Shown here is a 347-nucleotide sequence from Halothermothrix orenii, a member of the family "Bacterial RNase P class A". Pairs were carried over by alignment from the consensus structure, which is taken from published work. Rfam links the family to the GO terms dimeric ribonuclease P complex, tRNA processing and ribonuclease P activity. On this family, see Frank and Pace, Annu Rev Biochem 1998: "Ribonuclease P: unity and diversity in a tRNA processing ribozyme". It is annotated as a ribozyme. Rfam's curators put it in the seed alignment.
RNA sequence: UAAGUUGGCCGAAUGGUCGCGGCUAUAUAUAUAGCCGAGGAAAGUCCGAGCUUCACAGGGCAGGGUGCUGGGUAACACCCAGUGGAGGUGACUCCCAGGAAAGUGCCACAGAAACAAACCGCCUUACCUGUUUAAUGGUAAGGUAAGGGUGAAAAGGUGAGGUAAGAGCUCACCAGUGCCCAGGUGACUGGGUAGCUAGGUAAACCCCACCCGAAGCAAGUCCAUGUAGGGGGAGUUAAGGGUGGCCCGCCCGUUCCCCGGGUCUGGACGCUAAAGGUACCAGGCGACUGGUAUCUCAGAUAGAUGACCAUUCAAGACAGAACUCGGCUUACAGGUCAACUUAUACU
Number, nucleotide and partner (000 for none) at each position: 001u343002a342003a341004g340005u339006u338007g337008g336009c335010c334011g332012a312013a311014u310015g309016g308017u307018c306019g000020c037021g036022g035023c034024u033025a032026u031027a000028u000029a000030u000031a026032u025033a024034g023035c022036c021037g020038a000039g000040g000041a000042a330043a329044g328045u000046c327047c326048g325049a324050g323051c216052u215053u214054c213055a000056c000057a000058g248059g247060g246061c245062a000063g212064g211065g210066u209067g208068c082069u081070g080071g079072g078073u000074a000075a000076c000077a000078c072079c071080c070081a069082g068083u097084g095085g094086a093087g092088g000089u000090g000091a000092c087093u086094c085095c084096c000097a083098g207099g206100a000101a000102a000103g205104u204105g201106c200107c199108a000109c000110a000111g000112a000113a000114a000115c000116a000117a000118a000119c148120c147121g144122c143123c142124u141125u140126a139127c138128c137129u000130g000131u000132u000133u000134a000135a000136u000137g128138g127139u126140a125141a124142g123143g122144u121145a000146a000147g120148g119149g000150u000151g000152a000153a000154a000155a000156g174157g173158u172159g171160a170161g169162g000163u000164a000165a000166g000167a000168g000169c161170u160171c159172a158173c157174c156175a000176g196177u194178g193179c192180c191181c190182a189183g188184g000185u000186g000187a000188c183189u182190g181191g180192g179193u178194a177195g000196c176197u000198a000199g107200g106201u105202a000203a000204a104205c103206c099207c098208c067209a066210c065211c064212c063213g054214a053215a052216g051217c000218a000219a000220g269221u268222c267223c266224a000225u000226g000227u000228a000229g000230g259231g258232g257233g256234a255235g254236u000237u000238a000239a000240g252241g251242g250243u249244g000245g061246c060247c059248c058249g243250c242251c241252c240253g000254u235255u234256c233257c232258c231259c230260g000261g000262g000263u000264c000265u000266g223267g222268a221269c220270g000271c000272u000273a000274a000275a000276g295277g294278u293279a292280c291281c290282a289283g288284g000285c000286g000287a000288c283289u282290g281291g280292u279293a278294u277295c276296u000297c000298a000299g000300a000301u000302a000303g000304a000305u000306g018307a017308c016309c015310a014311u013312u012313c000314a000315a000316g000317a000318c000319a000320g000321a000322a000323c050324u049325c048326g047327g046328c044329u043330u042331a000332c011333a000334g010335g009336u008337c007338a006339a005340c004341u003342u002343a001344u000345a000346c000347u000